RNA sequence: AGGAGCUUCGAGCCAAUAAAGACAGAAAAGAUUGACUCAAGAACCA
Numbered sequence: 001a002g003g004a005g006c007u008u009c010g011a012g013c014c015a016a017u018a019a020a021g022a023c024a025g026a027a028a029a030g031a032u033u034g035a036c037u038c039a040a041g042a043a044c045c046a
Base pairs, nucleotide, nucleotide: 007041008040010038011037012036014034015033016032017031
The record is a 46-nucleotide RNA sequence from Anisodus acutangulus, which matches "Plastid-rpl16 group II-D1 intron" in Rfam. The family's consensus secondary structure was predicted with LocARNA. Rfam's curators write: Plastid-rpl16 is a non-coding RNA (ncRNA) recognised in plastids. It was recognised in and intronic region of a ribosome rpl16 gene. On this family, see Richter et al., Plant Commun 2023: "Retrograde signaling in plants: A critical review focusing on the GUN pathway and beyond". Rfam links the family to the GO term Group II intron splicing. The family has 538 seed sequences and 1,446 matches in Rfam 15.1.